RNA sequence: UACCGUCGCAUAUGCGGUUUAUCAUAUGCACCUCCCUGUUGGACUGACCCAGGUUUUUGCCUGGGUCUUUUU
Number, nucleotide and partner (000 for none) at each position: 001u000002a000003c000004c000005g000006u000007c000008g029009c028010a027011u026012a025013u024014g023015c000016g000017g000018u000019u000020u000021a000022u000023c014024a013025u012026a011027u010028g009029c008030a000031c000032c000033u000034c000035c000036c000037u000038g000039u000040u000041g000042g000043a000044c000045u000046g000047a066048c065049c064050c063051a062052g061053g060054u059055u000056u000057u000058u000059g054060c053061c052062u051063g050064g049065g048066u047067c000068u000069u000070u000071u000072u000
Rfam assigns this 72-nucleotide RNA from Thalassovita litoralis to the family "Singlet oxygen resistance RNA X".
The base pairs follow the family's consensus structure.
By type it is a small RNA.
On this family, see Peng et al., RNA Biol 2016: "Regulation of a polyamine transporter by the conserved 3' UTR-derived sRNA SorX confers resistance to singlet oxygen and organic hydroperoxides in Rhodobacter sphaeroides".
Rfam's curators write: SorX (RSs2461)like SorY is a singlet oxygen induced sRNA that counteracts oxidative stress by targeting mRNA for a transporter in Rhodobacter.